[Rfam]
RNA sequence: CUUCACGGAGCCCAGCAGCAGCGGCCGGCCCUCCGGGCGUUCCCGGCCGUAGGUGGCCAGGAGGGCCUGGGCCUC
Numbered sequence: 001c002u003u004c005a006c007g008g009a010g011c012c013c014a015g016c017a018g019c020a021g022c023g024g025c026c027g028g029c030c031c032u033c034c035g036g037g038c039g040u041u042c043c044c045g046g047c048c049g050u051a052g053g054u055g056g057c058c059a060g061g062a063g064g065g066c067c068u069g070g071g072c073c074u075c
Stems, first nucleotide, its partner, number of pairs: 015025002031071003038065001043060001045058001047056003
The family of this 75-nucleotide RNA sequence from Streptomyces sp. Ag109_G2-6 is "ASpks TB sRNA". It scores 74 bits against the family's covariance model. It is annotated as an antisense RNA.